[Rfam]
RNA sequence: GGUGCCAGAGGAAGGGACCCCAAUCCAGCCUUAGGAAAAGAAACGUUCCAUAAGAGUCUUGGAGAUUGGCGGCUGUCCAAAUGACUUA
Numbered sequence: 001g002g003u004g005c006c007a008g009a010g011g012a013a014g015g016g017a018c019c020c021c022a023a024u025c026c027a028g029c030c031u032u033a034g035g036a037a038a039a040g041a042a043a044c045g046u047u048c049c050a051u052a053a054g055a056g057u058c059u060u061g062g063a064g065a066u067u068g069g070c071g072g073c074u075g076u077c078c079a080a081a082u083g084a085c086u087u088a
Stems, first nucleotide, its partner, number of pairs: 002087001004085001006083002011078001013076001015074002018071001020069006029062002038060004044054001046052001
RNA: mir-9014 microRNA precursor family